[Rfam]
RNA sequence: CACCCAUUGCAAACUGCUUUAACCGAGACCUGUGAGCAGUAUAAGCAAUAGUCUCUCAUAUCCAGUAGCGAGGGGUUACUGGAAAUAAGUUUCGCAU
Numbered sequence: 001c002a003c004c005c006a007u008u009g010c011a012a013a014c015u016g017c018u019u020u021a022a023c024c025g026a027g028a029c030c031u032g033u034g035a036g037c038a039g040u041a042u043a044a045g046c047a048a049u050a051g052u053c054u055c056u057c058a059u060a061u062c063c064a065g066u067a068g069c070g071a072g073g074g075g076u077u078a079c080u081g082g083a084a085a086u087a088a089g090u091u092u093c094g095c096a097u
Stems, first nucleotide, its partner, number of pairs: 014039005020034002025055005061083007
Description
PhotoRC-II RNA: a 97-nucleotide sequence. It is annotated as a cis-regulatory element. The base pairs follow the family's consensus structure, which is taken from published work.